[Rfam]
RNA sequence: GCAUGCCGAUGAUGAUGCAAAAGCAUUGGUGAAUUCUGGAUGAAUACGCUUACCACGACGAGGUGUGCAACUCUGGUGAUAUCCAUAGCGCAAUACUCUGAGGCUUGC
Numbered sequence: 001g002c003a004u005g006c007c008g009a010u011g012a013u014g015a016u017g018c019a020a021a022a023g024c025a026u027u028g029g030u031g032a033a034u035u036c037u038g039g040a041u042g043a044a045u046a047c048g049c050u051u052a053c054c055a056c057g058a059c060g061a062g063g064u065g066u067g068c069a070a071c072u073c074u075g076g077u078g079a080u081a082u083c084c085a086u087a088g089c090g091c092a093a094u095a096c097u098c099u100g101a102g103g104c105u106u107g108c
Base pairs, nucleotide, nucleotide: 002107003106005104006103007102
Dot-bracket structure: .((.(((..............................................................................................))).)).

Rfam assigns this 108-nucleotide RNA sequence from Aegilops tauschii to the family "Small nucleolar RNA Z188".
The family's RNA type in Rfam is C/D-box small nucleolar RNA.
Rfam links the family to the GO terms RNA processing and nucleolus.